This 56-nucleotide RNA sequence from Salmo trutta belongs to the Rfam family "UnaL2 LINE 3' element". The literature on the family includes a 2004 paper in RNA by Baba et al., "Solution structure of an RNA stem-loop derived from the 3' conserved region of eel LINE UnaL2". Pairs were carried over by alignment from the consensus structure, which is taken from published work.
Nucleotides: 056
Stems, first nucleotide, its partner, number of pairs: 013045001014043001017042002023037005
Number, partner (000 for none) and nucleotide at each position: 001000u002000g003000u004000a005000a006000a007000c008000a009000u010000g011000c012000a013045u014043g015000a016000c017042u018041a019000a020000g021000u022000c023037g024036c025035u026034u027033u028000g029000g030000a031000u032000a033027a034026a035025a036024g037023c038000a039000u040000c041018u042017g043014c044000u045013a046000a047000a048000u049000g050000g051000c052000a053000u054000g055000c056000u
It scores 58 bits against the family's covariance model. About the family: The eel long interspersed element (LINE) UnaL2 and its partner short interspersed element (SINE) share a conserved 3' tail containing a stem-loop that is critical for their retrotransposition.